[Rfam]
Nucleotides: 255
Base pairs, nucleotide, nucleotide: 002216003215007211009209011207012206019150020149023146024145026143027142029140030139031138032137033136038130039129040128041127045123047121048120050116051115053113061091062090063089064088066087067086069085070084071083072081073080094109095108097106098105099104166194167193168192169191171189172188173187175185176184221253222252223251224248225247226246227245228244229243230242233239234238
Number, partner (000 for none) and nucleotide at each position: 001000c002216g003215g004000g005000c006000u007211a008000a009209u010000a011207c012206c013000a014000g015000a016000a017000g018000a019150c020149a021000a022000a023146c024145g025000u026143u027142u028000a029140c030139a031138a032137c033136u034000u035000a036000a037000a038130g039129a040128c041127u042000a043000c044000u045123u046000c047121a048120u049000c050116a051115a052000a053113c054000a055000g056000a057000u058000u059000a060000g061091g062090g063089c064088g065000u066087a067086c068000a069085u070084g071083g072081a073080u074000g075000g076000u077000a078000a079000a080073a081072u082000a083071c084070c085069a086067g087066u088064u089063g090062c091061c092000a093000c094109u095108g096000u097106c098105u099104c100000u101000a102000a103000u104099g105098a106097g107000u108095c109094a110000a111000g112000c113053g114000c115051u116050u117000c118000a119000a120048g121047u122000a123045a124000u125000a126000c127041a128040g129039u130038u131000a132000a133000a134000c135000c136033a137032g138031u139030u140029g141000c142027g143026a144000g145024u146023g147000c148000a149020u150019g151000g152000a153000a154000a155000c156000g157000a158000a159000a160000u161000a162000a163000a164000u165000a166194u167193g168192g169191c170000a171189c172188u173187u174000a175185c176184u177000a178000c179000a180000u181000g182000g183000a184176a185175g186000a187173g188172a189171g190000c191169g192168c193167u194166a195000g196000a197000u198000u199000c200000a201000c202000a203000a204000a205000c206012g207011g208000c209009a210000a211007u212000c213000a214000a215003c216002c217000a218000a219000u220000c221253a222252c223251a224248g225247u226246a227245a228244g229243a230242a231000a232000a233239g234238u235000u236000g237000g238234a239233c240000c241000a242230u243229u244228c245227u246226u247225a248224u249000c250000a251223u252222g253221u254000c255000c